[Rfam]
RNA sequence: UAAUAGGAGAUUCUUCAAGCCGGUAGAUCUAAAGCUCAUGUCAUGGUUUAUUGGCCGUUAGGGUAUAUAGGGAAACUUGUAUAUCUGCCAGUGCGCAAUGAAGAACACCGCUAACAAG
Numbered sequence: 001u002a003a004u005a006g007g008a009g010a011u012u013c014u015u016c017a018a019g020c021c022g023g024u025a026g027a028u029c030u031a032a033a034g035c036u037c038a039u040g041u042c043a044u045g046g047u048u049u050a051u052u053g054g055c056c057g058u059u060a061g062g063g064u065a066u067a068u069a070g071g072g073a074a075a076c077u078u079g080u081a082u083a084u085c086u087g088c089c090a091g092u093g094c095g096c097a098a099u100g101a102a103g104a105a106c107a108c109c110g111c112u113a114a115c116a117a118g
Base pairs, nucleotide, nucleotide: 011105012104013103014102015101016100019055020054021053022052023051024050025049026048027047028046029045034041035040061086062085063084064083065082066081067080068079069078070077071076087096088095
Molybdenum/Tungsten riboswitch aptamer (Moco RNA motif): a 118-nucleotide RNA from Sporomusa ovata. The source organism's lineage runs through Bacteria, Bacillati, Selenomonadales, Sporomusaceae and Sporomusa. The family's consensus secondary structure is taken from published work. It scores 50 bits against the family's covariance model. Rfam 15.1 lists 1,248 matches to the family in 836 species.